[Rfam]
RNA: Bacterial small signal recognition particle RNA
RNA sequence: CUUGCCAUUACAACGGACAUAUCUGAACCGUGUCAGGACCGGAAGGUAGCAGCACUAAGGAUCCCUGUUCGUGUGUAGUGGCCUUUUU
Numbered sequence: 001c002u003u004g005c006c007a008u009u010a011c012a013a014c015g016g017a018c019a020u021a022u023c024u025g026a027a028c029c030g031u032g033u034c035a036g037g038a039c040c041g042g043a044a045g046g047u048a049g050c051a052g053c054a055c056u057a058a059g060g061a062u063c064c065c066u067g068u069u070c071g072u073g074u075g076u077a078g079u080g081g082c083c084u085u086u087u088u
Base pairs, nucleotide, nucleotide: 004083005081006080007079008078009077010076011073013072014071015070016069017068018067021062022061023060024059030055031054032053033052038047039046040045